The family of this 430-nucleotide RNA from Punctularia strigosozonata is "RNase MRP". Rfam's curators write: RNase MRP is an enzymatically active ribonucleoprotein with two distinct roles in eukaryotes. In mitochondria it plays a direct role in the initiation of mitochondrial DNA replication. In the nucleus it is involved in precursor rRNA processing, where it cleaves the internal transcribed spacer 1 between 18S and 5.8S rRNAs. The organism belongs to Punctularia strigosozonata, within Eukaryota. Its family is annotated with rRNA processing, ribonuclease MRP complex and ribonuclease MRP activity in the Gene Ontology.

[Rfam]
RNA sequence: UCGCCGACCGAAGAAUCGCCAUCGCAGCUCCCGAACGCAGAGCUCCCUGACGCUCUCAUCUUCCGCUGUGGGCAAAGUCCCCGGAGACGCAGAUUUACUGUCCCGUCCGUACUGGAAAGCGUCUGGCGUUAAGCAAGUCAGAAUCCUCGGACCAUGCAUGGACGCGGUCAAGGGCCCGGAGGCACGCGCUCAUCCUUCGUGGUAGCAGUCGCCCUCUCCUUCGACCGAAUCUGCAGCUCGUUCUUGGACAAUCGAGGUGCUCUGCCCCGCAAGGGGCAAGGACGCGGGGUCGCGAAGAUAUGAGCGAUCCCGUUGUCUGAGUGCCUUGGUUGGCUCGAGGCGAGCAUCGUUGCUCAUAGACAAAGUUAUGCGAUUGCCUGCAAUUCAUAUUGCAUUGGUCAACUCAAUGGGGCUUGCUCUUGUGUCGGCG
Numbered sequence: 001u002c003g004c005c006g007a008c009c010g011a012a013g014a015a016u017c018g019c020c021a022u023c024g025c026a027g028c029u030c031c032c033g034a035a036c037g038c039a040g041a042g043c044u045c046c047c048u049g050a051c052g053c054u055c056u057c058a059u060c061u062u063c064c065g066c067u068g069u070g071g072g073c074a075a076a077g078u079c080c081c082c083g084g085a086g087a088c089g090c091a092g093a094u095u096u097a098c099u100g101u102c103c104c105g106u107c108c109g110u111a112c113u114g115g116a117a118a119g120c121g122u123c124u125g126g127c128g129u130u131a132a133g134c135a136a137g138u139c140a141g142a143a144u145c146c147u148c149g150g151a152c153c154a155u156g157c158a159u160g161g162a163c164g165c166g167g168u169c170a171a172g173g174g175c176c177c178g179g180a181g182g183c184a185c186g187c188g189c190u191c192a193u194c195c196u197u198c199g200u201g202g203u204a205g206c207a208g209u210c211g212c213c214c215u216c217u218c219c220u221u222c223g224a225c226c227g228a229a230u231c232u233g234c235a236g237c238u239c240g241u242u243c244u245u246g247g248a249c250a251a252u253c254g255a256g257g258u259g260c261u262c263u264g265c266c267c268c269g270c271a272a273g274g275g276g277c278a279a280g281g282a283c284g285c286g287g288g289g290u291c292g293c294g295a296a297g298a299u300a301u302g303a304g305c306g307a308u309c310c311c312g313u314u315g316u317c318u319g320a321g322u323g324c325c326u327u328g329g330u331u332g333g334c335u336c337g338a339g340g341c342g343a344g345c346a347u348c349g350u351u352g353c354u355c356a357u358a359g360a361c362a363a364a365g366u367u368a369u370g371c372g373a374u375u376g377c378c379u380g381c382a383a384u385u386c387a388u389a390u391u392g393c394a395u396u397g398g399u400c401a402a403c404u405c406a407a408u409g410g411g412g413c414u415u416g417c418u419c420u421u422g423u424g425u426c427g428g429c430g
Stems, first nucleotide, its partner, number of pairs: 002430007009422003014375006022071007040055004075415003079412004263278006307347002313343006323334003377398002380395001
Dot-bracket structure: .((((((((((..((((((..(((((((...........((((........)))).........)))))))...[[[.[[[[....................................................................................................................................................................................((((((....))))))............................((....((((((....(((......)))...))))))..))......................)))))).((.(..............).))..........]]]]]]]....))).)))))))